[Rfam]
RNA sequence: GCGCGGACGUACGGCUCGGCCUCCUCCCGCUCCACGUUCGGCUGGCACCACUUCCCCGGUGCCAGGGGAACGUUUCUGCCGAGCGGGCGGGGACCAGGUUCUACGUCCAUCCGCAG
Numbered sequence: 001g002c003g004c005g006g007a008c009g010u011a012c013g014g015c016u017c018g019g020c021c022u023c024c025u026c027c028c029g030c031u032c033c034a035c036g037u038u039c040g041g042c043u044g045g046c047a048c049c050a051c052u053u054c055c056c057c058g059g060u061g062c063c064a065g066g067g068g069a070a071c072g073u074u075u076c077u078g079c080c081g082a083g084c085g086g087g088c089g090g091g092g093a094c095c096a097g098g099u100u101c102u103a104c105g106u107c108c109a110u111c112c113g114c115a116g
Stems, first nucleotide, its partner, number of pairs: 010103002013100004018095002021092004026087007035072005042065007
RNA: mraW RNA
Organism: Actinacidiphila bryophytorum